A member of the RNA family "Lysine riboswitch aptamer" from Dubosiella newyorkensis, 165 nucleotides long.
RNA sequence: AACAAUGAUAGAGGCGCAGAAAAGACCGUGAUAAUUCGAGCAGGCAUGCAUUGGAGAGUUUGAUCGAGCGAUUUUGCCGAACUGUUUUUUUAGGCAUAAAAAAACGGUGGGCCAGCGGAGAACAUCUUCUGGACUGUCUACCUUGGUAGGAGUGCUAUCUCAUUG
Numbered sequence: 001a002a003c004a005a006u007g008a009u010a011g012a013g014g015c016g017c018a019g020a021a022a023a024g025a026c027c028g029u030g031a032u033a034a035u036u037c038g039a040g041c042a043g044g045c046a047u048g049c050a051u052u053g054g055a056g057a058g059u060u061u062g063a064u065c066g067a068g069c070g071a072u073u074u075u076g077c078c079g080a081a082c083u084g085u086u087u088u089u090u091u092a093g094g095c096a097u098a099a100a101a102a103a104a105c106g107g108u109g110g111g112c113c114a115g116c117g118g119a120g121a122a123c124a125u126c127u128u129c130u131g132g133a134c135u136g137u138c139u140a141c142c143u144u145g146g147u148a149g150g151a152g153u154g155c156u157a158u159c160u161c162a163u164u165g
Base pairs, nucleotide, nucleotide: 007159008158009157010156011155016077017076018075019074020073021072024069030065031064032063034061037058081108082107083106084105085104086103087102088101089100090099091098092097109135110134112132113131114130115129117127118126119125137150138149139148140147141146